[Rfam]
RNA sequence: AUAUUUACUUGGCAGGGGAGAUACCACAACUACGAAGGUGGUUUUCCCAGGGCAAGAUUUAUCCAUUGCAUUCUGGGUGUGUUGACCCCUGUGAUUUCCCCAGAUACGGGAAACUUGAAUGCAUAAUUUGUGGUAGUGGUUUGUGCUCUCCCUGAA
Numbered sequence: 001a002u003a004u005u006u007a008c009u010u011g012g013c014a015g016g017g018g019a020g021a022u023a024c025c026a027c028a029a030c031u032a033c034g035a036a037g038g039u040g041g042u043u044u045u046c047c048c049a050g051g052g053c054a055a056g057a058u059u060u061a062u063c064c065a066u067u068g069c070a071u072u073c074u075g076g077g078u079g080u081g082u083u084g085a086c087c088c089c090u091g092u093g094a095u096u097u098c099c100c101c102a103g104a105u106a107c108g109g110g111a112a113a114c115u116u117g118a119a120u121g122c123a124u125a126a127u128u129u130g131u132g133g134u135a136g137u138g139g140u141u142u143g144u145g146c147u148c149u150c151c152c153u154g155a156a
Base pairs, nucleotide, nucleotide: 012122013121014120016048017047018046019045020044021043023042024041025040026039027038049090050089051088052087056083057082058081060079061078062077063076064075092117093116094115095113096112097111099109100108140156141155143152145150
Rfam assigns this 156-nucleotide sequence from Octodon degus to the family "U1 spliceosomal RNA". The family is grouped with related families in Rfam's "U1 clan". The family's RNA type in Rfam is spliceosomal small nuclear RNA. The base pairs follow the family's consensus structure, which is taken from published work. Rfam 15.1 lists 40,184 matches to the family in 1,499 species. U1 is a small nuclear RNA (snRNA) component of the spliceosome (involved in pre-mRNA splicing). Its 5' end forms complementary base pairs with the 5' splice junction, thus defining the 5' donor site of an intron. There are significant differences in sequence and secondary structure between metazoan and yeast U1 snRNAs, the latter being much longer (568 nucleotides as compared to 164 nucleotides in human). Nevertheless, secondary structure predictions suggest that all U1 snRNAs share a 'common core' consisting of helices I, II, the proximal region of III, and IV. This family does not contain the larger yeast sequences.